The family of this 441-nucleotide part of an RNA from Saccharicrinis fermentans is "Bacterial large subunit ribosomal RNA". The family is grouped with related families in Rfam's "LSU clan".
[Rfam]
RNA sequence: CUCCCCGAAAUGCAUUUAGGUGCAGCCUUGUUUUAGUUAUACAGAGGUAGAGCUACUGAUUGGACGAGAGGGCUUCACCGCCUAUCAACUCCUGAUAAACUCCGAAUGCUGUAUAAUGAUGAACAGGAGUGAGGGCAUGGGUGCUAAGGUCCGUGUCCGAAAGGGAAAGAACCCAGACCAUCAGCUAAGGUCCCCAAAUAUAUGCUAAGUUGAACAAACGCGGUUUGAUUGCAGAGACAGCUAGGAUGUUGGCUUGGAAGCAGCCAUUCAUUUAAAGAGUGCGUAACAGCUCACUAGUCGAGCGAUCGAGCAUGGAUAAUAAUCGGGCAUAAGCAUAUUACCGAAGCUAUGGAUUGUUAAUUUAUUAACAGUGGUAGGGGAGCAUUCCAAUGACGCAGAAGCCGGAUGGCGAUGUCCGGUGGAGUAAUUGGAAAAGCAAAU
Numbered sequence: 001c002u003c004c005c006c007g008a009a010a011u012g013c014a015u016u017u018a019g020g021u022g023c024a025g026c027c028u029u030g031u032u033u034u035a036g037u038u039a040u041a042c043a044g045a046g047g048u049a050g051a052g053c054u055a056c057u058g059a060u061u062g063g064a065c066g067a068g069a070g071g072g073c074u075u076c077a078c079c080g081c082c083u084a085u086c087a088a089c090u091c092c093u094g095a096u097a098a099a100c101u102c103c104g105a106a107u108g109c110u111g112u113a114u115a116a117u118g119a120u121g122a123a124c125a126g127g128a129g130u131g132a133g134g135g136c137a138u139g140g141g142u143g144c145u146a147a148g149g150u151c152c153g154u155g156u157c158c159g160a161a162a163g164g165g166a167a168a169g170a171a172c173c174c175a176g177a178c179c180a181u182c183a184g185c186u187a188a189g190g191u192c193c194c195c196a197a198a199u200a201u202a203u204g205c206u207a208a209g210u211u212g213a214a215c216a217a218a219c220g221c222g223g224u225u226u227g228a229u230u231g232c233a234g235a236g237a238c239a240g241c242u243a244g245g246a247u248g249u250u251g252g253c254u255u256g257g258a259a260g261c262a263g264c265c266a267u268u269c270a271u272u273u274a275a276a277g278a279g280u281g282c283g284u285a286a287c288a289g290c291u292c293a294c295u296a297g298u299c300g301a302g303c304g305a306u307c308g309a310g311c312a313u314g315g316a317u318a319a320u321a322a323u324c325g326g327g328c329a330u331a332a333g334c335a336u337a338u339u340a341c342c343g344a345a346g347c348u349a350u351g352g353a354u355u356g357u358u359a360a361u362u363u364a365u366u367a368a369c370a371g372u373g374g375u376a377g378g379g380g381a382g383c384a385u386u387c388c389a390a391u392g393a394c395g396c397a398g399a400a401g402c403c404g405g406a407u408g409g410c411g412a413u414g415u416c417c418g419g420u421g422g423a424g425u426a427a428u429u430g431g432a433a434a435a436g437c438a439a440a441u
Stems, first nucleotide, its partner, number of pairs: 001382006011024005026129001027127007035120001036117009050103001051101002057097002062092003068086002070083004133158010163174003178352004183348003189342003198339001200338006219314002223311010240298005246271003251265003272276001277292001281290002353372008383436001385433007393425002401420008